[Rfam]
RNA sequence: AGGGCGGGCCUUUCAGGCAUCCUCUCCUAAAAACUUUUCAGGGGCUGGUCUUCGGAUCGGCCCCUUUUUUUCGCGUCA
Numbered sequence: 001a002g003g004g005c006g007g008g009c010c011u012u013u014c015a016g017g018c019a020u021c022c023u024c025u026c027c028u029a030a031a032a033a034c035u036u037u038u039c040a041g042g043g044g045c046u047g048g049u050c051u052u053c054g055g056a057u058c059g060g061c062c063c064c065u066u067u068u069u070u071u072c073g074c075g076u077c078a
Stems, first nucleotide, its partner, number of pairs: 008018004042063009
Shown here is a 78-nucleotide RNA sequence from Sphingomonas jeddahensis, a member of the family "Makes More Granules Regulator RNA (mmgR)". The family's RNA type in Rfam is small RNA. It scores 45 bits against the family's covariance model. The pairing is the family consensus, mapped onto this sequence. On this family, see Corbino et al., Genome Biol 2005: "Evidence for a second class of S-adenosylmethionine riboswitches and other regulatory RNA motifs in alpha-proteobacteria". Rfam describes the family as follows. SuhB later renamed mmgR (makes more granules regulator) was a putative non-coding RNA found multiple times in the Agrobacterium tumefaciens genome and related alpha-proteobacteria. The family is grouped with related families in Rfam's "suhB sRNA clan".